The family of this 37-nucleotide RNA sequence from Francisella tularensis is "CRISPR RNA direct repeat element". Gene Ontology term of the family: defense response. The family's consensus secondary structure was predicted with WAR.
RNA sequence: CUAACAGUAGUUUACCAAAUAAUUUAGCGACUGAAAC
Numbered sequence: 001c002u003a004a005c006a007g008u009a010g011u012u013u014a015c016c017a018a019a020u021a022a023u024u025u026a027g028c029g030a031c032u033g034a035a036a037c
Stems, first nucleotide, its partner, number of pairs: 005033004010028003